[Rfam]
RNA sequence: CUUCAGGGAGCCGACGAGGAGGGGGCGCCCCUCGGGCCGGUCCUGGCCGUAGGUGGCGAGGAGCGCCUGGGCCUC
Numbered sequence: 001c002u003u004c005a006g007g008g009a010g011c012c013g014a015c016g017a018g019g020a021g022g023g024g025g026c027g028c029c030c031c032u033c034g035g036g037c038c039g040g041u042c043c044u045g046g047c048c049g050u051a052g053g054u055g056g057c058g059a060g061g062a063g064c065g066c067c068u069g070g071g072c073c074u075c
Base pairs, nucleotide, nucleotide: 015025031071032070033069038065039064043060044059047056048055049054
Rfam assigns this 75-nucleotide RNA sequence from Streptomyces sp. YIM 121038 to the family "ASpks TB sRNA". NCBI's taxonomy places the organism under Bacteria, Bacillati, Actinomycetota, Streptomycetaceae, Streptomyces. By type it is an antisense RNA.